This 112-nucleotide RNA belongs to the Rfam family "drum RNA". It is one of the family's seed sequences. Rfam classes the family as a small RNA. Rfam describes the family as follows. Firmicutes, Bacteroidetes (1 example), Proteobacteria (2 examples), Spirochaetes (2 examples).
RNA sequence: AAUCUUUGAAGUGUACGCCGGGUUAGGAACCGGUUUACAUGGAGAUUUACAAAGGUGCGAGGAUUUACCAUAGCCUAACUAGGAACUAUGUUCUGAAAGAAAGUCCUUGAAU
Numbered sequence: 001a002a003u004c005u006u007u008g009a010a011g012u013g014u015a016c017g018c019c020g021g022g023u024u025a026g027g028a029a030c031c032g033g034u035u036u037a038c039a040u041g042g043a044g045a046u047u048u049a050c051a052a053a054g055g056u057g058c059g060a061g062g063a064u065u066u067a068c069c070a071u072a073g074c075c076u077a078a079c080u081a082g083g084a085a086c087u088a089u090g091u092u093c094u095g096a097a098a099g100a101a102a103g104u105c106c107u108u109g110a111a112u
Stems, first nucleotide, its partner, number of pairs: 001047004011040005017034005023078004060107003082094004